[Rfam]
RNA sequence: GUCCAUGAUGAUACCUCCAAGUUUACGAGAUGUGGAUAGCUUCAAGUCCCUGUUACACGGGGAGAGCCCACUUGGAGCUGCUGCAUACAAAUGACAUUAGUGGACUUUUCUGAGGC
Numbered sequence: 001g002u003c004c005a006u007g008a009u010g011a012u013a014c015c016u017c018c019a020a021g022u023u024u025a026c027g028a029g030a031u032g033u034g035g036a037u038a039g040c041u042u043c044a045a046g047u048c049c050c051u052g053u054u055a056c057a058c059g060g061g062g063a064g065a066g067c068c069c070a071c072u073u074g075g076a077g078c079u080g081c082u083g084c085a086u087a088c089a090a091a092u093g094a095c096a097u098u099a100g101u102g103g104a105c106u107u108u109u110c111u112g113a114g115g116c
Base pairs, nucleotide, nucleotide: 001116002115003114048062049061050060051059052058
A member of the RNA family "Small nucleolar RNA Z278" from Cocos nucifera, 116 nucleotides long. It is annotated as a C/D-box small nucleolar RNA. On this family, see Chen et al., Nucleic Acids Res 2003: "The high diversity of snoRNAs in plants: identification and comparative study of 120 snoRNA genes from Oryza sativa". Rfam describes the family as follows. snoZ278 is a C/D box small nucleolar RNA. Its methylation guide targets have not been reported. NCBI's taxonomy places the organism under Eukaryota, Viridiplantae, Spermatophyta, Mesangiospermae, Cocos.